[Rfam]
RNA: Small nucleolar RNA SNORD93
Organism: Felis catus
RNA sequence: UGGCCAAGGAUGAGAACUCUUAAUCUGAUUGGAUAUGCUUCUCUGAUGGGUUAAAGGAUUUACCUGAGGCCA
Numbered sequence: 001u002g003g004c005c006a007a008g009g010a011u012g013a014g015a016a017c018u019c020u021u022a023a024u025c026u027g028a029u030u031g032g033a034u035a036u037g038c039u040u041c042u043c044u045g046a047u048g049g050g051u052u053a054a055a056g057g058a059u060u061u062a063c064c065u066g067a068g069g070c071c072a
Stems, first nucleotide, its partner, number of pairs: 002071004